This 100-nucleotide sequence from Bacillus sp. SJS belongs to the Rfam family "Glycine riboswitch aptamer". A search with the family's covariance model found it, with a score of 69 bits.
RNA sequence: AUGACGAUAAGGGGAGAGACCGCAGCAGACUAAGACUGUGUGCGGCGCCGAAGGAGCAAACAUUUGUGAAUCUCUCAGGCAAAAAGACUCUUAUUUGACG
Numbered sequence: 001a002u003g004a005c006g007a008u009a010a011g012g013g014g015a016g017a018g019a020c021c022g023c024a025g026c027a028g029a030c031u032a033a034g035a036c037u038g039u040g041u042g043c044g045g046c047g048c049c050g051a052a053g054g055a056g057c058a059a060a061c062a063u064u065u066g067u068g069a070a071u072c073u074c075u076c077a078g079g080c081a082a083a084a085a086g087a088c089u090c091u092u093a094u095u096u097g098a099c100g
Stems, first nucleotide, its partner, number of pairs: 006095008020045004047080003050076002054074003060067002